[Rfam]
RNA sequence: UAUAAGGACACGGGGUGCCGCGGGUCUUGUGCGUGCGGCUGAGAAAUACCCGUUGAACCUGAUCCAGGUAAUGCUGGCGAAGGGAUGUUCGGGUGCAUUGAC
Numbered sequence: 001u002a003u004a005a006g007g008a009c010a011c012g013g014g015g016u017g018c019c020g021c022g023g024g025u026c027u028u029g030u031g032c033g034u035g036c037g038g039c040u041g042a043g044a045a046a047u048a049c050c051c052g053u054u055g056a057a058c059c060u061g062a063u064c065c066a067g068g069u070a071a072u073g074c075u076g077g078c079g080a081a082g083g084g085a086u087g088u089u090c091g092g093g094u095g096c097a098u099u100g101a102c
Base pairs, nucleotide, nucleotide: 006090007089008088009087010086011052012051013050014049016046017039018038019037020036021035058083059082060081064077065076066075067074